[Rfam]
RNA sequence: UCGUCAGUGAGGUUAAUCCUUACCUGUUCCUCUCCGGGAGAAACAGCACAUGAUGAAUGGAGGAGACUGAGUCGCUGAUUACUCUGUACUCCGGUCCUGUCUGGUGCGACAACACUUACCAGGCAGGAUCAUUCUGAU
Numbered sequence: 001u002c003g004u005c006a007g008u009g010a011g012g013u014u015a016a017u018c019c020u021u022a023c024c025u026g027u028u029c030c031u032c033u034c035c036g037g038g039a040g041a042a043a044c045a046g047c048a049c050a051u052g053a054u055g056a057a058u059g060g061a062g063g064a065g066a067c068u069g070a071g072u073c074g075c076u077g078a079u080u081a082c083u084c085u086g087u088a089c090u091c092c093g094g095u096c097c098u099g100u101c102u103g104g105u106g107c108g109a110c111a112a113c114a115c116u117u118a119c120c121a122g123g124c125a126g127g128a129u130c131a132u133u134c135u136g137a138u
Base pairs, nucleotide, nucleotide: 025041028039029038030037032036069091070090073086074085076081096127097126098125099124100123101122102121103120104119
U8 small nucleolar RNA: a 138-nucleotide sequence. A reference for the family is Peculis et al. (2001), "The U8 snoRNA gene family: identification and characterization of distinct, functional U8 genes in Xenopus", Gene. Rfam links the family to the GO terms RNA processing and nucleolus. Rfam 15.1 lists 1,597 matches to the family in 457 species.